[Rfam]
Source information:
The record is a 172-nucleotide RNA sequence, which matches "Hepatitis C virus (HCV) cis-acting replication element (CRE)" in Rfam. Pairs were carried over by alignment from the consensus structure, which was predicted with RNAfold. The family's RNA type in Rfam is cis-regulatory element.
RNA sequence: CCAUUACCGGGGGCGGACAAGCUUGACUUGUCAAGUUGGUUCGUUGCUGGUUUCGGCGGGGGGGAUGUAUAUCACAGCGCAUCCCGAGCCCGACCCCGCUACUUGCUGCUAUGCCUACUCCUACUCUCAGUGGGGGUAGGCCUCGUUCUGUUACCUAACAGGUAGACAGAAC
Numbered sequence: 001c002c003a004u005u006a007c008c009g010g011g012g013g014c015g016g017a018c019a020a021g022c023u024u025g026a027c028u029u030g031u032c033a034a035g036u037u038g039g040u041u042c043g044u045u046g047c048u049g050g051u052u053u054c055g056g057c058g059g060g061g062g063g064g065a066u067g068u069a070u071a072u073c074a075c076a077g078c079g080c081a082u083c084c085c086g087a088g089c090c091c092g093a094c095c096c097c098g099c100u101a102c103u104u105g106c107u108g109c110u111a112u113g114c115c116u117a118c119u120c121c122u123a124c125u126c127u128c129a130g131u132g133g134g135g136g137u138a139g140g141c142c143u144c145g146u147u148c149u150g151u152u153a154c155c156u157a158a159c160a161g162g163u164a165g166a167c168a169g170a171a172c
Stems, first nucleotide, its partner, number of pairs: 006051005012045002016041003020037007055100007062085006113141012147170005152164002155161001